RNA sequence: UACUAGCAAAUCCUAUAUCGACCUCCACGCGGUGACGGCUGGGAAUUCUUGCUCAAUGAAAAAUUGCAGACGUAGG
Numbered sequence: 001u002a003c004u005a006g007c008a009a010a011u012c013c014u015a016u017a018u019c020g021a022c023c024u025c026c027a028c029g030c031g032g033u034g035a036c037g038g039c040u041g042g043g044a045a046u047u048c049u050u051g052c053u054c055a056a057u058g059a060a061a062a063a064u065u066g067c068a069g070a071c072g073u074a075g076g
Stems, first nucleotide, its partner, number of pairs: 012076005020071001021033003044065004049060002052058001

drz-agam-1 ribozyme: a 76-nucleotide RNA from Hermetia illucens. The family's consensus secondary structure is taken from published work. Taxonomically the source falls in Hermetia (Eukaryota, Pancrustacea, Aparaglossata, Stratiomyomorpha).